[Rfam]
RNA sequence: GCCCAAAGUCGCACGUGCCUGUGGGUGUCCGCCGUCCUCUCGUAUUGGUGAGGGGAAAGGCAAGGUACCCGGAGCUAACCCCUCCGGUCGCUGCCCGGCCAACCGGACCAGCGAGGACAUCUUGAAGCAACGACGGUCGGGUCUAU
Numbered sequence: 001g002c003c004c005a006a007a008g009u010c011g012c013a014c015g016u017g018c019c020u021g022u023g024g025g026u027g028u029c030c031g032c033c034g035u036c037c038u039c040u041c042g043u044a045u046u047g048g049u050g051a052g053g054g055g056a057a058a059g060g061c062a063a064g065g066u067a068c069c070c071g072g073a074g075c076u077a078a079c080c081c082c083u084c085c086g087g088u089c090g091c092u093g094c095c096c097g098g099c100c101a102a103c104c105g106g107a108c109c110a111g112c113g114a115g116g117a118c119a120u121c122u123u124g125a126a127g128c129a130a131c132g133a134c135g136g137u138c139g140g141g142u143c144u145a146u
Stems, first nucleotide, its partner, number of pairs: 001142004008134004016129003023122008031061003035057001038053005069087005088114004093108001095106004
A member of the RNA family "Alphaproteobacterial sRNA ar45" from Oricola thermophila, 146 nucleotides long.